The family of this 124-nucleotide RNA sequence from Diceros bicornis is "Small nucleolar RNA SNORA25".
RNA sequence: AGGUCAUUUCAAAGAGGGCUUGUGAGUCUGUGAAACCAGAGGUCUUAACACUAUGACCAAAGAAAUUCUCCAUAGGAUGACACAGUCACUCAAUAGUGCUAUCUUUCCCUGAAGAGAUGCAAGA
Numbered sequence: 001a002g003g004u005c006a007u008u009u010c011a012a013a014g015a016g017g018g019c020u021u022g023u024g025a026g027u028c029u030g031u032g033a034a035a036c037c038a039g040a041g042g043u044c045u046u047a048a049c050a051c052u053a054u055g056a057c058c059a060a061a062g063a064a065a066u067u068c069u070c071c072a073u074a075g076g077a078u079g080a081c082a083c084a085g086u087c088a089c090u091c092a093a094u095a096g097u098g099c100u101a102u103c104u105u106u107c108c109c110u111g112a113a114g115a116g117a118u119g120c121a122a123g124a
Stems, first nucleotide, its partner, number of pairs: 002058006014046004019041003023038001026036002067117004074110003082102001084100002087098004
Rfam classes the family as an H/ACA-box small nucleolar RNA.
About the family: ACA25 is a member of the H/ACA class of snoRNA that guide the sites of modification of uridines to pseudouridines.
Rfam 15.1 lists 1,129 matches to the family in 449 species.
NCBI's taxonomy places the organism under Eukaryota, Deuterostomia, Vertebrata, Amniota, Diceros bicornis.